[Rfam]
RNA sequence: UGCCGGCUUUCCAUCAGCCGGGGUUACUGAAGAGGCACACCUUCAUUGCCGGACGUGCGGUAGGGUUCUCCUUCCAAUCAAUGGCAGACAAAGCGGACCAAAGCUCCUGGCAGGGCGUUGGUCCAUCAUUCGCGCAUCGUGCGCAUGUCUGGAUC
Numbered sequence: 001u002g003c004c005g006g007c008u009u010u011c012c013a014u015c016a017g018c019c020g021g022g023g024u025u026a027c028u029g030a031a032g033a034g035g036c037a038c039a040c041c042u043u044c045a046u047u048g049c050c051g052g053a054c055g056u057g058c059g060g061u062a063g064g065g066u067u068c069u070c071c072u073u074c075c076a077a078u079c080a081a082u083g084g085c086a087g088a089c090a091a092a093g094c095g096g097a098c099c100a101a102a103g104c105u106c107c108u109g110g111c112a113g114g115g116c117g118u119u120g121g122u123c124c125a126u127c128a129u130u131c132g133c134g135c136a137u138c139g140u141g142c143g144c145a146u147g148u149c150u151g152g153a154u155c
Stems, first nucleotide, its partner, number of pairs: 001023001003021006034050004057135003084094001103118002106115002
speF leader: a 155-nucleotide RNA sequence from Rhizobium sp. Root482.
Rfam links the family to the GO term regulation of gene expression.
Lineage of the source: Bacteria > Pseudomonadati > Pseudomonadota > Rhizobiaceae > Rhizobium.
This family is a putative regulatory RNA structure that is found upstream of the speF gene encoding ornithine decarboxylase in Agrobacterium tumefaciens and other alpha-proteobacteria.